RNA: Streptomyces RNA 3920
Organism: Streptomyces sp. SirexAA-E
RNA sequence: GAUAGGGAGCUGUCGCUUCUGUGAUUGGACACUGACGCUCGGUCAACUAGCCUUGUCCAGACGGUUCGUCGUGCGAGGAACCGGGGUGGUCCGAGCCACGAGGGGGGAGGCUCGGACCAUCCGUC
Numbered sequence: 001g002a003u004a005g006g007g008a009g010c011u012g013u014c015g016c017u018u019c020u021g022u023g024a025u026u027g028g029a030c031a032c033u034g035a036c037g038c039u040c041g042g043u044c045a046a047c048u049a050g051c052c053u054u055g056u057c058c059a060g061a062c063g064g065u066u067c068g069u070c071g072u073g074c075g076a077g078g079a080a081c082c083g084g085g086g087u088g089g090u091c092c093g094a095g096c097c098a099c100g101a102g103g104g105g106g107g108a109g110g111c112u113c114g115g116a117c118c119a120u121c122c123g124u125c
Base pairs, nucleotide, nucleotide: 001014002013003012004011005010015051016050017049021032022031023030033045034044035043036042058075061072062071063070064069077082085121086120087119088118089117090116091115092114093113094112095111096110097109099106